Rfam assigns this 110-nucleotide RNA sequence from Planococcus lenghuensis to the family "SAM riboswitch aptamer (S box leader)". The source organism's lineage runs through Bacteria, Bacillati, Bacilli, Caryophanaceae and Planococcus. Pairs were carried over by alignment from the consensus structure, which is taken from published work.
RNA sequence: UCCUUAUUAAGAGAGGCAGAGGGACUGGCCCAAUGACGCCCGGCAACCGCUAUUUUUUAAAUAGCAUGGUGCCAAAUCCUGCGGAACAUGAAAGUUCUGAGUGAUAAGGA
Numbered sequence: 001u002c003c004u005u006a007u008u009a010a011g012a013g014a015g016g017c018a019g020a021g022g023g024a025c026u027g028g029c030c031c032a033a034u035g036a037c038g039c040c041c042g043g044c045a046a047c048c049g050c051u052a053u054u055u056u057u058u059a060a061a062u063a064g065c066a067u068g069g070u071g072c073c074a075a076a077u078c079c080u081g082c083g084g085a086a087c088a089u090g091a092a093a094g095u096u097c098u099g100a101g102u103g104a105u106a107a108g109g110a
Base pairs, nucleotide, nucleotide: 001110002109003108004107005106006105007104008103013041015040016039017038021031022030023029025081027079028078042073043072044071045070047069048068049065050064051063052062082099083098084097085096086095087094